A member of the RNA family "Staphylococcus sRNA 35 (srn_0335)" from Staphylococcus aureus, 273 nucleotides long. NCBI's taxonomy places the organism under Bacteria, Bacillota, Caryophanales, Staphylococcaceae, Staphylococcus aureus. Rfam classes the family as a small RNA. Pairs were carried over by alignment from the consensus structure, which was predicted with RNAfold.
RNA sequence: AUGCUAAUUGGCACCAUGGGAGUGGGACAGAAAUGAUAUUUUCAUAAAAUUUAUUUCGUCGUCCCACCCCAACUCGCUUUGCCUGUAGAAUUUCUUUUCGAAAUUCUCUGUGUUGGGGCCCACACCCCAACUUGCAUUGUCUGUAGAAAUUGGGAAUCCAAUUUCUCUUUGUUGGGGCCCCUGACUAGAAUUGAAAAAAGCUUGUUACAAGCGCAUUUUCGUUCAGUCAACUACUGCCAAUAUAACUUCGUAGAGCAUAGAACAUUGAUUUAU
Numbered sequence: 001a002u003g004c005u006a007a008u009u010g011g012c013a014c015c016a017u018g019g020g021a022g023u024g025g026g027a028c029a030g031a032a033a034u035g036a037u038a039u040u041u042u043c044a045u046a047a048a049a050u051u052u053a054u055u056u057c058g059u060c061g062u063c064c065c066a067c068c069c070c071a072a073c074u075c076g077c078u079u080u081g082c083c084u085g086u087a088g089a090a091u092u093u094c095u096u097u098u099c100g101a102a103a104u105u106c107u108c109u110g111u112g113u114u115g116g117g118g119c120c121c122a123c124a125c126c127c128c129a130a131c132u133u134g135c136a137u138u139g140u141c142u143g144u145a146g147a148a149a150u151u152g153g154g155a156a157u158c159c160a161a162u163u164u165c166u167c168u169u170u171g172u173u174g175g176g177g178c179c180c181c182u183g184a185c186u187a188g189a190a191u192u193g194a195a196a197a198a199a200g201c202u203u204g205u206u207a208c209a210a211g212c213g214c215a216u217u218u219u220c221g222u223u224c225a226g227u228c229a230a231c232u233a234c235u236g237c238c239a240a241u242a243u244a245a246c247u248u249c250g251u252a253g254a255g256c257a258u259a260g261a262a263c264a265u266u267g268a269u270u271u272a273u
Stems, first nucleotide, its partner, number of pairs: 001017003005013001018070003022067007030057007038050005072144002076140002080136003087107008112131007145166008168244001170242006177235001182229005188224004193220005200212004250273005256267002